[Rfam]
RNA: mir-46/mir-47/mir-281 microRNA precursor family
Organism: Dracunculus medinensis
RNA sequence: AAAUACAGGCGACUAAGAGAGCCAUCUGUUGACAGUCAUUAAUGAUUACUGUCAUGGAGUUGCUCUCUUCAGGUGACUGUAU
Numbered sequence: 001a002a003a004u005a006c007a008g009g010c011g012a013c014u015a016a017g018a019g020a021g022c023c024a025u026c027u028g029u030u031g032a033c034a035g036u037c038a039u040u041a042a043u044g045a046u047u048a049c050u051g052u053c054a055u056g057g058a059g060u061u062g063c064u065c066u067c068u069u070c071a072g073g074u075g076a077c078u079g080u081a082u
Base pairs, nucleotide, nucleotide: 015069016068017067018066020064021063022062025058026057027056028055031053032052033051035049036048